[Rfam]
RNA sequence: UAUAACAGCAUGCCGAAUUUUCGCGAGCGAAAAACGGGGGACCCAUUUCGUCAUACAAGCAUAGUUUACCGCGUUGAUAUGAUGAAGCGAAAACGGUGCGGCGCCGGCAAUGCCGGGCGAGCCGUUUCCGCUUGGGGUGAACGAAUCCGGCUGACAGUCAGCUGCGGAUUCCAGGGAACCUUCAACCGAACCCACAGCUAACCUCGUAGGCAAUUGAAGGGAGACUCG
Numbered sequence: 001u002a003u004a005a006c007a008g009c010a011u012g013c014c015g016a017a018u019u020u021u022c023g024c025g026a027g028c029g030a031a032a033a034a035c036g037g038g039g040g041a042c043c044c045a046u047u048u049c050g051u052c053a054u055a056c057a058a059g060c061a062u063a064g065u066u067u068a069c070c071g072c073g074u075u076g077a078u079a080u081g082a083u084g085a086a087g088c089g090a091a092a093a094c095g096g097u098g099c100g101g102c103g104c105c106g107g108c109a110a111u112g113c114c115g116g117g118c119g120a121g122c123c124g125u126u127u128c129c130g131c132u133u134g135g136g137g138u139g140a141a142c143g144a145a146u147c148c149g150g151c152u153g154a155c156a157g158u159c160a161g162c163u164g165c166g167g168a169u170u171c172c173a174g175g176g177a178a179c180c181u182u183c184a185a186c187c188g189a190a191c192c193c194a195c196a197g198c199u200a201a202c203c204u205c206g207u208a209g210g211c212a213a214u215u216g217a218a219g220g221g222a223g224a225c226u227c228g
Stems, first nucleotide, its partner, number of pairs: 011212004018033006034207006044134002135193003143171007174187002
Dot-bracket structure: ..........((((...((((((....))))))((((((....((.......................................................................................))(((.....(((((((...............)))))))..((..........))...)))........)))))).))))................
RNA: c-di-AMP riboswitch aptamer (ydaO/yuaA leader)